[Rfam]
Record summary:
Small nucleolar RNA ACA64: a 133-nucleotide RNA sequence from Oryctolagus cuniculus. NCBI's taxonomy places the organism under Eukaryota, Bilateria, Euarchontoglires, Leporidae, Oryctolagus.
RNA sequence: GUUGGCUGAAAAUCACCCCAGUUUUGACCAUGGCCACGGCCGUGGCUGUGGCCGAGAUUCCGUGCUUAGAACCACCAGGCACUCACCUCCCAUUGCUCUGGUUUGGGAAGGUGAAACCCAGGCCCUGACAGAU
Numbered sequence: 001g002u003u004g005g006c007u008g009a010a011a012a013u014c015a016c017c018c019c020a021g022u023u024u025u026g027a028c029c030a031u032g033g034c035c036a037c038g039g040c041c042g043u044g045g046c047u048g049u050g051g052c053c054g055a056g057a058u059u060c061c062g063u064g065c066u067u068a069g070a071a072c073c074a075c076c077a078g079g080c081a082c083u084c085a086c087c088u089c090c091c092a093u094u095g096c097u098c099u100g101g102u103u104u105g106g107g108a109a110g111g112u113g114a115a116a117c118c119c120a121g122g123c124c125c126u127g128a129c130a131g132a133u
Base pairs, nucleotide, nucleotide: 005063006062008060009059010058013055014054020047021046022045023044078124079123080122083114084113085112086111087110091105092104
Record summary:
Rfam 15.1 lists 9,537 matches to the family in 620 species. On this family, see Schattner et al., RNA 2006: "A computational screen for mammalian pseudouridylation guide H/ACA RNAs".